The family of this 175-nucleotide RNA from Burkholderia gladioli is "Burkholderia sRNA Bp2_Cand287_SIPHT".
The family's consensus secondary structure was predicted with RNAalifold.
[Rfam]
RNA sequence: AAAAAGCCCGCGACGCGUCGGCAUCAGCGGGCUUCAGUGCGGUACCACAGCCUGGACUCCAGCCGGCGGUGCCGGCCUUCGCUUUAGCUGUUUCGGGGCGAUUGCCCCACGUCCGCAAGCUGAAUCAAAUCGACGCAAGGCGCAUCGUAACACGCGAGCGCGAAACGAUGCGCGC
Numbered sequence: 001a002a003a004a005a006g007c008c009c010g011c012g013a014c015g016c017g018u019c020g021g022c023a024u025c026a027g028c029g030g031g032c033u034u035c036a037g038u039g040c041g042g043u044a045c046c047a048c049a050g051c052c053u054g055g056a057c058u059c060c061a062g063c064c065g066g067c068g069g070u071g072c073c074g075g076c077c078u079u080c081g082c083u084u085u086a087g088c089u090g091u092u093u094c095g096g097g098g099c100g101a102u103u104g105c106c107c108c109a110c111g112u113c114c115g116c117a118a119g120c121u122g123a124a125u126c127a128a129a130u131c132g133a134c135g136c137a138a139g140g141c142g143c144a145u146c147g148u149a150a151c152a153c154g155c156g157a158g159c160g161c162g163a164a165a166c167g168a169u170g171c172g173c174g175c
Stems, first nucleotide, its partner, number of pairs: 004034008015022002038137004049083003055079002059075001062072001064071002084123006095108003110115001151174001153172004
Taxonomically the source falls in Burkholderia gladioli (Bacteria, Pseudomonadati, Burkholderiales, Burkholderia).
On this family, see Khoo et al., BMC Genomics 2012: "Computational discovery and RT-PCR validation of novel Burkholderia conserved and Burkholderia pseudomallei unique sRNAs".